SAM riboswitch aptamer (S box leader): a 118-nucleotide RNA sequence from Bacillus sp. FJAT-18017. Rfam's curators write: The SAM riboswitch is found upstream of a number of genes which code for proteins involved in methionine or cysteine biosynthesis in Gram-positive bacteria. The SAM riboswitch acts at the level of transcription termination control. The predicted structure consists of a complex stem-loop region followed by a single stem loop terminator region.
[Rfam]
RNA sequence: CUCUUAUCCUGAGCCGGUGGAGGGACAGGCCCUACGAAGCCCGGCAACCUGCUGAAUAGCGACAAUUUUCAGAAAAGGUGCCAACCUGACGCAAGGCGAUUGCCUUGAACGAUAAGAG
Numbered sequence: 001c002u003c004u005u006a007u008c009c010u011g012a013g014c015c016g017g018u019g020g021a022g023g024g025a026c027a028g029g030c031c032c033u034a035c036g037a038a039g040c041c042c043g044g045c046a047a048c049c050u051g052c053u054g055a056a057u058a059g060c061g062a063c064a065a066u067u068u069u070c071a072g073a074a075a076a077g078g079u080g081c082c083a084a085c086c087u088g089a090c091g092c093a094a095g096g097c098g099a100u101u102g103c104c105u106u107g108a109a110c111g112a113u114a115a116g117a118g
Stems, first nucleotide, its partner, number of pairs: 001118008013042001016041003022032003026091001029087001043082004048078002050074001052072005092107006